[Rfam]
RNA sequence: GAGCCGCACUCGGUGGCAGGUGAUCAAAGUGGUCCGACACAAUUGGAGCUUGCUAUGGCCACACGCAGUCUAACCUAUUCUCGUGCUCUCUCCUCUGUGAGACAAGCCAUCAUAUAGAUUUAGACAGA
Numbered sequence: 001g002a003g004c005c006g007c008a009c010u011c012g013g014u015g016g017c018a019g020g021u022g023a024u025c026a027a028a029g030u031g032g033u034c035c036g037a038c039a040c041a042a043u044u045g046g047a048g049c050u051u052g053c054u055a056u057g058g059c060c061a062c063a064c065g066c067a068g069u070c071u072a073a074c075c076u077a078u079u080c081u082c083g084u085g086c087u088c089u090c091u092c093c094u095c096u097g098u099g100a101g102a103c104a105a106g107c108c109a110u111c112a113u114a115u116a117g118a119u120u121u122a123g124a125c126a127g128a
Stems, first nucleotide, its partner, number of pairs: 009048003013040003017036001019034003067120006076114003081109001083107002089102004